The record is a 98-nucleotide sequence from Erinaceus europaeus, which matches "Small nucleolar RNA SNORD116" in Rfam. The organism belongs to Erinaceus, within Eukaryota.
[Rfam]
RNA sequence: GGAUCGAUGAUGACUCCCCAUUCACACCAGCAUUCCUUGGAAAAGCUGAACAAAAUGAGUGAGAACCCCCUCCGUCUAUCUCAUCGGUUCUGAGGUCC
Numbered sequence: 001g002g003a004u005c006g007a008u009g010a011u012g013a014c015u016c017c018c019c020a021u022u023c024a025c026a027c028c029a030g031c032a033u034u035c036c037u038u039g040g041a042a043a044a045g046c047u048g049a050a051c052a053a054a055a056u057g058a059g060u061g062a063g064a065a066c067c068c069c070c071u072c073c074g075u076c077u078a079u080c081u082c083a084u085c086g087g088u089u090c091u092g093a094g095g096u097c098c
Stems, first nucleotide, its partner, number of pairs: 001098005031061005037053003
The literature on the family includes a 2000 paper in Proc Natl Acad Sci U S A by Cavaille et al., "Identification of brain-specific and imprinted small nucleolar RNA genes exhibiting an unusual genomic organization". The family's consensus secondary structure was predicted with PFOLD. It is annotated as a C/D-box small nucleolar RNA. The sequence is in the family's curated seed alignment.